[Rfam]
RNA sequence: AAGUAAUGAACAUCAGCUAAAGGCGUCACGUCCGCAUGUUCUUCGCCGAUAUGACCUACAUCCUGUAGG
Numbered sequence: 001a002a003g004u005a006a007u008g009a010a011c012a013u014c015a016g017c018u019a020a021a022g023g024c025g026u027c028a029c030g031u032c033c034g035c036a037u038g039u040u041c042u043u044c045g046c047c048g049a050u051a052u053g054a055c056c057u058a059c060a061u062c063c064u065g066u067a068g069g
Stems, first nucleotide, its partner, number of pairs: 012050003016046002025042001028039004055069005
Dot-bracket structure: ...........(((.((.......(..((((....))))..)..)).)))....(((((.....)))))
RNA: Bacillaceae-1 RNA
Organism: Peribacillus faecalis